[Rfam]
RNA sequence: CCAACAUGGAUAGUCUGGGAGGUCACUCUCCCCAGGCUCUGUGGAAGUGGUGUUGGGGAGCAUAGACGUUUGGUCCAUGACGUACAGUACAGCCCCUUUCCACAAUGCUGGAGAUGAAGCUGGGUCUCCUGUCUGCGCCUGCAUAUUCCUAUAGCUUCCCUGAGUCCUGUGGAUGAUGACUGGUGAGACAAAUCGUGCAGGAAACAAGU
Numbered sequence: 001c002c003a004a005c006a007u008g009g010a011u012a013g014u015c016u017g018g019g020a021g022g023u024c025a026c027u028c029u030c031c032c033c034a035g036g037c038u039c040u041g042u043g044g045a046a047g048u049g050g051u052g053u054u055g056g057g058g059a060g061c062a063u064a065g066a067c068g069u070u071u072g073g074u075c076c077a078u079g080a081c082g083u084a085c086a087g088u089a090c091a092g093c094c095c096c097u098u099u100c101c102a103c104a105a106u107g108c109u110g111g112a113g114a115u116g117a118a119g120c121u122g123g124g125u126c127u128c129c130u131g132u133c134u135g136c137g138c139c140u141g142c143a144u145a146u147u148c149c150u151a152u153a154g155c156u157u158c159c160c161u162g163a164g165u166c167c168u169g170u171g172g173a174u175g176a177u178g179a180c181u182g183g184u185g186a187g188a189c190a191a192a193u194c195g196u197g198c199a200g201g202a203a204a205c206a207a208g209u
Base pairs, nucleotide, nucleotide: 001111002110003109005107006106007105010042011041012040014036015035016034018029019028020027021026047103048102049101050100056096057095058094060090062083063082065078138201139200140199141198142197143196144195155187156186157185159183160182164174165173166172167171

Rfam assigns this 209-nucleotide RNA from Homo sapiens to the family "Small nucleolar RNA SNORA73 family". Gene Ontology terms of the family: nucleolus and RNA processing. The match comes from Rfam's covariance-model search (146 bits). Pairs were carried over by alignment from the consensus structure, which is taken from published work. U17 (SNORA73A and SNORA73B) also known as E1 belongs to the H/ACA class of small nucleolar RNAs (snoRNAs). Vertebrate U17 is intron-encoded and ranges in length from 200-230 nucleotides, longer than most snoRNAs. It is one of the most abundant snoRNAs in human cells and is essential for the cleavage of pre-rRNA within the 5' external transcribed spacer (ETS). The family is grouped with related families in Rfam's "snR30-U17 clan". The source organism's lineage runs through Eukaryota, Bilateria, Vertebrata, Primates and Homo.